[Rfam]
This 196-nucleotide RNA from Spartinivicinus marinus belongs to the Rfam family "FMN riboswitch aptamer (RFN element)". Its family is annotated with FMN binding in the Gene Ontology. NCBI's taxonomy places the organism under Bacteria, Pseudomonadati, Gammaproteobacteria, Zooshikellaceae, Spartinivicinus.

Nucleotides: 196
Base pairs, nucleotide, nucleotide: 003194004193005192006191007190008189009188010187017029018028019027031176032175033165034164035083036082037081038080078163079162086141087140145161146160147159148158149157167179168178169177
Number, partner (000 for none) and nucleotide at each position: 001000c002000g003194u004193u005192a006191u007190u008189c009188u010187c011000a012000g013000g014000g015000c016000g017029g018028g019027g020000u021000g022000a023000a024000a025000u026000u027019c028018c029017c030000c031176a032175c033165c034164g035083g036082c037081g038080g039000u040000g041000a042000u043000c044000u045000u046000a047000u048000u049000g050000g051000c052000u053000g054000a055000a056000a057000a058000u059000g060000g061000u062000u063000u064000c065000a066000g067000c068000c069000a070000a071000u072000a073000a074000g075000a076000a077000a078163g079162c080038c081037c082036g083035c084000g085000a086141g087140c088000g089000c090000u091000u092000g093000g094000u095000u096000a097000a098000u099000a100000g101000c102000u103000c104000u105000c106000c107000u108000u109000u110000a111000c112000a113000a114000g115000g116000u117000u118000g119000a120000a121000c122000g123000c124000u125000a126000u127000a128000u129000a130000a131000c132000c133000a134000a135000g136000g137000u138000c139000a140087g141086c142000a143000g144000a145161u146160u147159u148158g149157g150000u151000g152000u153000a154000a155000c156000u157149c158148c159147a160146a161145a162079g163078c164034c165033g166000a167179c168178g169177g170000u171000g172000a173000u174000a175032g176031u177169c178168c179167g180000g181000a182000u183000g184000g185000g186000a187010g188009a189008g190007g191006g192005u193004a194003g195000c196000g